This 115-nucleotide sequence from Camphora micrantha belongs to the Rfam family "Small nucleolar RNA Z278". snoZ278 is a C/D box small nucleolar RNA. Its methylation guide targets have not been reported. A reference for the family is Chen et al. (2003), "The high diversity of snoRNAs in plants: identification and comparative study of 120 snoRNA genes from Oryza sativa", Nucleic Acids Res.
RNA sequence: GCCAGUGAUGAUUUAUCCAUGUUUGGAGGUGUGGUGAAACCAAGACCCUGUUUUCAGGGAGAACCUACUUGGGGUUGGCCACAUUUCAAUUGACAUAAAUGAAUUUCACUGAGGU
Numbered sequence: 001g002c003c004a005g006u007g008a009u010g011a012u013u014u015a016u017c018c019a020u021g022u023u024u025g026g027a028g029g030u031g032u033g034g035u036g037a038a039a040c041c042a043a044g045a046c047c048c049u050g051u052u053u054u055c056a057g058g059g060a061g062a063a064c065c066u067a068c069u070u071g072g073g074g075u076u077g078g079c080c081a082c083a084u085u086u087c088a089a090u091u092g093a094c095a096u097a098a099a100u101g102a103a104u105u106u107c108a109c110u111g112a113g114g115u
Base pairs, nucleotide, nucleotide: 001115002114003113046059047058048057049056050055

By type it is a C/D-box small nucleolar RNA. Pairs were carried over by alignment from the consensus structure, which was predicted with PFOLD. NCBI's taxonomy places the organism under Eukaryota, Tracheophyta, Magnoliopsida, Magnoliidae, Camphora.